Description
The family of this 107-nucleotide RNA from Ruminococcus sp. CAG:330 is "SAM riboswitch aptamer (S box leader)". Lineage of the source: Bacteria > Bacillati > Bacillota > Clostridia > Ruminococcus.
RNA sequence: ACCUUAUCAAGAGCGGCGGAGGAACAGGUCCUGUGAAGCCCGACAACCGGCUGAUUGCAAGCGUCAGCAGCGGUGCCAAAUCCUGCGGUAUAUCCGAAAGAUGAGGG
Dot-bracket structure: .(((((((....(.(((...(((.[[[[)))......))))(.((.((.((((((.......))))))...)))).)...(]]]](((.....)))..)))))))).